[Rfam]
The family of this 131-nucleotide sequence from Marmota monax is "Small nucleolar RNA SNORA17". The family is grouped with related families in Rfam's "SNORA17 clan". By type it is an H/ACA-box small nucleolar RNA. A search with the family's covariance model found it, with a score of 134 bits. Rfam links the family to the GO terms RNA processing and nucleolus. snoRNA ACA 17 belongs to the H/ACA family of snoRNAs and is predicted to guide pseudouridylation of the 28S rRNA at positions U4659 and U4598. It shares the same host gene together with ACA43. NB This family has a high threshold value to exclude a large number of closely related sequences that do not appear to have conserved H and ACA boxes, and may be pseudogenes. The base pairs follow the family's consensus structure, which was predicted with RNAalifold. On this family, see Ofengand and Bakin, J Mol Biol 1997: "Mapping to nucleotide resolution of pseudouridine residues in large subunit ribosomal RNAs from representative eukaryotes, prokaryotes, archaebacteria, mitochondria and chloroplasts".

RNA sequence: ACUGCCCCUAGAGGCGUUGCAGUGUGGCUGCUGUGUCGCACUUGCGUCAGUAGGUGGCGGAAAGAAGAGAGGCUAUGUCUACGCUCAGUGUUCUCACCCGUGAACGUUUGAAUGAUUAAUAGCCUAACACU
Numbered sequence: 001a002c003u004g005c006c007c008c009u010a011g012a013g014g015c016g017u018u019g020c021a022g023u024g025u026g027g028c029u030g031c032u033g034u035g036u037c038g039c040a041c042u043u044g045c046g047u048c049a050g051u052a053g054g055u056g057g058c059g060g061a062a063a064g065a066a067g068a069g070a071g072g073c074u075a076u077g078u079c080u081a082c083g084c085u086c087a088g089u090g091u092u093c094u095c096a097c098c099c100g101u102g103a104a105c106g107u108u109u110g111a112a113u114g115a116u117u118a119a120u121a122g123c124c125u126a127a128c129a130c131u
Stems, first nucleotide, its partner, number of pairs: 002060005007054004013048003019045004023040006067128001070125007082114002085111004089106005